[Rfam]
RNA sequence: UUUAUAGUAGGGAAUGAAGUUCUCCCUGGAAUGAUGUUCCAAACCGCUGAUGAGCUAAUGACUUCUAUGCAUAU
Numbered sequence: 001u002u003u004a005u006a007g008u009a010g011g012g013a014a015u016g017a018a019g020u021u022c023u024c025c026c027u028g029g030a031a032u033g034a035u036g037u038u039c040c041a042a043a044c045c046g047c048u049g050a051u052g053a054g055c056u057a058a059u060g061a062c063u064u065c066u067a068u069g070c071a072u073a074u
Stems, first nucleotide, its partner, number of pairs: 010026004016065006046055003
Rfam assigns this 74-nucleotide RNA from Paramaledivibacter caminithermalis to the family "Fluoride riboswitch aptamer (crcB RNA motif)".